[Rfam]
RNA sequence: GUGAUUCUGAUUUCAUUCCAUGCAAGUGUUUUCUAUAUGUAUAGAUAAUAUUGAAAACCUUGUUUGGAUUGGCAUCAGUAUGCA
Numbered sequence: 001g002u003g004a005u006u007c008u009g010a011u012u013u014c015a016u017u018c019c020a021u022g023c024a025a026g027u028g029u030u031u032u033c034u035a036u037a038u039g040u041a042u043a044g045a046u047a048a049u050a051u052u053g054a055a056a057a058c059c060u061u062g063u064u065u066g067g068a069u070u071g072g073c074a075u076c077a078g079u080a081u082g083c084a
Stems, first nucleotide, its partner, number of pairs: 004081002008077004013072003017068004022063001029057005

The family of this 84-nucleotide RNA from Ornithorhynchus anatinus is "mir-1422 microRNA precursor family".
Pairs were carried over by alignment from the consensus structure, which was predicted with RNAalifold.
Its family is annotated with miRNA-mediated post-transcriptional gene silencing and RISC complex in the Gene Ontology.